[Rfam]
RNA sequence: UGAUGCUGCCCAUCUUCUUGGGCGUUUCCUCCCUAGACUUGGGCCGUAUCAGAUUGCUGGUACGGCCUUUUUUUUGUCCGGA
Numbered sequence: 001u002g003a004u005g006c007u008g009c010c011c012a013u014c015u016u017c018u019u020g021g022g023c024g025u026u027u028c029c030u031c032c033c034u035a036g037a038c039u040u041g042g043g044c045c046g047u048a049u050c051a052g053a054u055u056g057c058u059g060g061u062a063c064g065g066c067c068u069u070u071u072u073u074u075u076g077u078c079c080g081g082a
Stems, first nucleotide, its partner, number of pairs: 008023004042067009
RNA: Makes More Granules Regulator RNA (mmgR)
Organism: Tistrella mobilis